[Rfam]
The family of this 127-nucleotide RNA sequence from Sorex araneus is "Small nucleolar RNA SNORA27".
It is one of the family's seed sequences.
The organism belongs to Sorex, within Eukaryota.
The base pairs follow the family's consensus structure.
By type it is an H/ACA-box small nucleolar RNA.
RNA sequence: UGCCCCUGUCUCACUUUCCCAAUUGGAUUUAUGUCUUUAUUGGUCAUUCAAGUGGGGCAAAGGAAGUGUCCUUUUAAAACUCAAGCAAACUGGGAAUUUGUCUUACAUCUAGUCAGAGGAAACAAUA
Numbered sequence: 001u002g003c004c005c006c007u008g009u010c011u012c013a014c015u016u017u018c019c020c021a022a023u024u025g026g027a028u029u030u031a032u033g034u035c036u037u038u039a040u041u042g043g044u045c046a047u048u049c050a051a052g053u054g055g056g057g058c059a060a061a062g063g064a065a066g067u068g069u070c071c072u073u074u075u076a077a078a079a080c081u082c083a084a085g086c087a088a089a090c091u092g093g094g095a096a097u098u099u100g101u102c103u104u105a106c107a108u109c110u111a112g113u114c115a116g117a118g119g120a121a122a123c124a125a126u127a
Stems, first nucleotide, its partner, number of pairs: 032059005040051004069120006083103001085101005